[Rfam]
The family of this 213-nucleotide RNA sequence from Herbaspirillum sp. alder98 is "permuted transfer-messenger RNA". NCBI's taxonomy places the organism under Bacteria, Pseudomonadati, Burkholderiales, Oxalobacteraceae, Herbaspirillum. The sequence is in the family's curated seed alignment. Bacterial tmRNA, also known as 10Sa RNA or SsrA, is named for its dual tRNA and mRNA-like properties. Its role is to liberate the mRNA from a stalled ribosome. To accomplish this part of the tmRNA is used as a reading frame that ends in a translation stop signal.

RNA sequence: UGAAGGCGAAAAUCGUUUUGGACGGGGGUUCGAUUCCCCCCACCUCCACCAAAUGGAGGAAGGAUCGUUCUACUGCCUUCCUCCAUCUGACGGGGGUGAUCCGGUUUCGACAGGGCGACAAGUAUCCGGAGACACAUCACGUCAGGCGACCGACGUAAAUAGCGCAAAUCGAUAAUUGCAAAUGAACCGCAAUUCGUUGCUUACGGCACCUAA
Numbered sequence: 001u002g003a004a005g006g007c008g009a010a011a012a013u014c015g016u017u018u019u020g021g022a023c024g025g026g027g028g029u030u031c032g033a034u035u036c037c038c039c040c041c042a043c044c045u046c047c048a049c050c051a052a053a054u055g056g057a058g059g060a061a062g063g064a065u066c067g068u069u070c071u072a073c074u075g076c077c078u079u080c081c082u083c084c085a086u087c088u089g090a091c092g093g094g095g096g097u098g099a100u101c102c103g104g105u106u107u108c109g110a111c112a113g114g115g116c117g118a119c120a121a122g123u124a125u126c127c128g129g130a131g132a133c134a135c136a137u138c139a140c141g142u143c144a145g146g147c148g149a150c151c152g153a154c155g156u157a158a159a160u161a162g163c164g165c166a167a168a169u170c171g172a173u174a175a176u177u178g179c180a181a182a183u184g185a186a187c188c189g190c191a192a193u194u195c196g197u198u199g200c201u202u203a204c205g206g207c208a209c210c211u212a213a
Base pairs, nucleotide, nucleotide: 005126014117015116016115018113019112020111024040025039026038027037028036041098042097043096044095045094046093047092140155141154142153143152